[Rfam]
RNA: Small Nucleolar RNA SNORD64
Organism: Carlito syrichta
RNA sequence: GGUUAUAUGAUGAGCUGUGUUUGAACAUGAUGACAUGUAAAACUCAGGGUAAUUGCUCUGAAGUCC
Numbered sequence: 001g002g003u004u005a006u007a008u009g010a011u012g013a014g015c016u017g018u019g020u021u022u023g024a025a026c027a028u029g030a031u032g033a034c035a036u037g038u039a040a041a042a043c044u045c046a047g048g049g050u051a052a053u054u055g056c057u058c059u060g061a062a063g064u065c066c
Stems, first nucleotide, its partner, number of pairs: 001066002004063001012058003020052002022046003